Shown here is a 100-nucleotide sequence from Sporosarcina sp. JAI121, a member of the family "S10-Clostridia ribosomal protein leader". A search with the family's covariance model found it, with a score of 37 bits. The base pairs follow the family's consensus structure, which is taken from published work. Rfam classes the family as a cis-regulatory leader. For this family Rfam cites "Discovery of 20 novel ribosomal leader candidates in bacteria and archaea" (Eckert and Weinberg, BMC Microbiol, 2020).
[Rfam]
RNA sequence: UGACUGCGAUGAAGCGAGAGGUUGCCGACACACCAGGCCGCUUUGCCAUGGCAUGUGUGUGGGAAAUUUUCGCGGAGAAUGUCUAUAACAAAAUAGGCGC
Numbered sequence: 001u002g003a004c005u006g007c008g009a010u011g012a013a014g015c016g017a018g019a020g021g022u023u024g025c026c027g028a029c030a031c032a033c034c035a036g037g038c039c040g041c042u043u044u045g046c047c048a049u050g051g052c053a054u055g056u057g058u059g060u061g062g063g064a065a066a067u068u069u070u071c072g073c074g075g076a077g078a079a080u081g082u083c084u085a086u087a088a089c090a091a092a093a094u095a096g097g098c099g100c
Stems, first nucleotide, its partner, number of pairs: 014073003018070004025062003080099004086095002